[Rfam]
Rfam assigns this 100-nucleotide RNA from Pectinatus cerevisiiphilus to the family "SAM riboswitch aptamer (S box leader)". The family's consensus secondary structure is taken from published work. NCBI's taxonomy places the organism under Bacteria, Negativicutes, Selenomonadales, Selenomonadaceae, Pectinatus. The SAM riboswitch is found upstream of a number of genes which code for proteins involved in methionine or cysteine biosynthesis in Gram-positive bacteria. Its family is annotated with regulation of gene expression in the Gene Ontology.
RNA sequence: CUCUUAUUUAGAGUGGUCGAGGGACUGGCCCGAUGACACCCAGCAACCGGCGUUUACGCAAGGUGCUAAUUCCUGCAGGAGUAAUCCUGAAAAAUGAGAG
Numbered sequence: 001c002u003c004u005u006a007u008u009u010a011g012a013g014u015g016g017u018c019g020a021g022g023g024a025c026u027g028g029c030c031c032g033a034u035g036a037c038a039c040c041c042a043g044c045a046a047c048c049g050g051c052g053u054u055u056a057c058g059c060a061a062g063g064u065g066c067u068a069a070u071u072c073c074u075g076c077a078g079g080a081g082u083a084a085u086c087c088u089g090a091a092a093a094a095u096g097a098g099a100g
Stems, first nucleotide, its partner, number of pairs: 001100008013041001015040003021031003025075001027073002042067004047063002050059003071092001076089005